[Rfam]
A member of the RNA family "Plastid-rps18 3UTR RNA" from Protea cynaroides, 57 nucleotides long. The source organism's lineage runs through Eukaryota, Tracheophyta, Mesangiospermae, Proteales and Protea. The match comes from Rfam's covariance-model search (73 bits). Rfam classes the family as a cis-regulatory element. The family has 238 seed sequences and 1,462 matches in Rfam 15.1. Rfam's curators write: Plastid rps18 is a non-coding RNA (ncRNA) present in plastids. The literature on the family includes a 2023 paper in Plant Commun by Richter et al., "Retrograde signaling in plants: A critical review focusing on the GUN pathway and beyond".
RNA sequence: UGCAAAUAUUUUACGAUUAAGAAGUAACUGUUUUUUGUACAAAUCAUGUAUUAAUCA
Numbered sequence: 001u002g003c004a005a006a007u008a009u010u011u012u013a014c015g016a017u018u019a020a021g022a023a024g025u026a027a028c029u030g031u032u033u034u035u036u037g038u039a040c041a042a043a044u045c046a047u048g049u050a051u052u053a054a055u056c057a
Stems, first nucleotide, its partner, number of pairs: 018037008